[Rfam]
RNA sequence: CCACGGGUUAGGCAAACCUGGUUAAAGCCAGGGACGCUAAAGCUAUGGGUCUAAGGGUAUCACUAACAUACCUAUGAUUGCCAGGCUGUAACG
Numbered sequence: 001c002c003a004c005g006g007g008u009u010a011g012g013c014a015a016a017c018c019u020g021g022u023u024a025a026a027g028c029c030a031g032g033g034a035c036g037c038u039a040a041a042g043c044u045a046u047g048g049g050u051c052u053a054a055g056g057g058u059a060u061c062a063c064u065a066a067c068a069u070a071c072c073u074a075u076g077a078u079u080g081c082c083a084g085g086c087u088g089u090a091a092c093g
Stems, first nucleotide, its partner, number of pairs: 012037002017032006041087004046083003049078003056072004
RNA: c-di-GMP-I riboswitch aptamer
Organism: Desulfallas thermosapovorans